[Rfam]
RNA sequence: GCUAAGAUGUAGCCUUUAUCUGCAUUUGCACCUGCACCUUCUUAUUUUUAUCUGCUUCAGGCUUCAGCUUUCAGGAACUAAAGCAAUAUAUAUAUAUAUAUAUAUGUACUAAAGCAGAUGUGUUAGUGCAGUUGGUGAAAACAGGAUAAGGCUGAGAAAAGAAGGUGCAGGUGCAGGUGCAGAUGAAAGCCAUUUUGGU
Numbered sequence: 001g002c003u004a005a006g007a008u009g010u011a012g013c014c015u016u017u018a019u020c021u022g023c024a025u026u027u028g029c030a031c032c033u034g035c036a037c038c039u040u041c042u043u044a045u046u047u048u049u050a051u052c053u054g055c056u057u058c059a060g061g062c063u064u065c066a067g068c069u070u071u072c073a074g075g076a077a078c079u080a081a082a083g084c085a086a087u088a089u090a091u092a093u094a095u096a097u098a099u100a101u102a103u104a105u106g107u108a109c110u111a112a113a114g115c116a117g118a119u120g121u122g123u124u125a126g127u128g129c130a131g132u133u134g135g136u137g138a139a140a141a142c143a144g145g146a147u148a149a150g151g152c153u154g155a156g157a158a159a160a161g162a163a164g165g166u167g168c169a170g171g172u173g174c175a176g177g178u179g180c181a182g183a184u185g186a187a188a189g190c191c192a193u194u195u196u197g198g199u
Stems, first nucleotide, its partner, number of pairs: 001199009012190002015187025050119008059110002